[Rfam]
Notes: This 123-nucleotide sequence from Stappia indica belongs to the Rfam family "Alphaproteobacterial ar14". A search with the family's covariance model found it, with a score of 70 bits. It is annotated as a small RNA. The base pairs follow the family's consensus structure.
RNA sequence: GGGCAACGGAGCAAGCGAUCCUCCUCCCACGCUUCGCUCCCGUUCAGGCCGGUGUUCCUCCUCCCUCACCGGCCCUCCAAAACGACGCCCACCGGAUCCUCCUCCCACCGGUGGGCGUUCGUU
Numbered sequence: 001g002g003g004c005a006a007c008g009g010a011g012c013a014a015g016c017g018a019u020c021c022u023c024c025u026c027c028c029a030c031g032c033u034u035c036g037c038u039c040c041c042g043u044u045c046a047g048g049c050c051g052g053u054g055u056u057c058c059u060c061c062u063c064c065c066u067c068a069c070c071g072g073c074c075c076u077c078c079a080a081a082a083c084g085a086c087g088c089c090c091a092c093c094g095g096a097u098c099c100u101c102c103u104c105c106c107a108c109c110g111g112u113g114g115g116c117g118u119u120c121g122u123u
Stems, first nucleotide, its partner, number of pairs: 007042003011037002013034005047074008085118011